[Rfam]
RNA sequence: CUCUUAUCGAGAGAGGUGGAGGGACUGGCCCGAUGAAGCCCGGCAACCGUCAAGCAAUGCUUGGAAAGGUGCCAAUUCCUGCAGAGCUAUGUGCUUUGGCAGAUGAGGG
Numbered sequence: 001c002u003c004u005u006a007u008c009g010a011g012a013g014a015g016g017u018g019g020a021g022g023g024a025c026u027g028g029c030c031c032g033a034u035g036a037a038g039c040c041c042g043g044c045a046a047c048c049g050u051c052a053a054g055c056a057a058u059g060c061u062u063g064g065a066a067a068g069g070u071g072c073c074a075a076u077u078c079c080u081g082c083a084g085a086g087c088u089a090u091g092u093g094c095u096u097u098g099g100c101a102g103a104u105g106a107g108g109g
Stems, first nucleotide, its partner, number of pairs: 001109008013041001015040003021031003025081001027079002042073004047069002050064003077101001082098006
Dot-bracket structure: ((((((((....(.(((...(((.[.[[)))......))))((((.((.(((.........)))...))))))...(]].]((((((.....))))))..)))))))))
The family of this 109-nucleotide sequence from Terrihalobacillus insolitus is "SAM riboswitch aptamer (S box leader)". NCBI's taxonomy places the organism under Bacteria, Bacillati, Bacillota, Caryophanales, Terrihalobacillus. A search with the family's covariance model found it, with a score of 93 bits. The base pairs follow the family's consensus structure, which is taken from published work.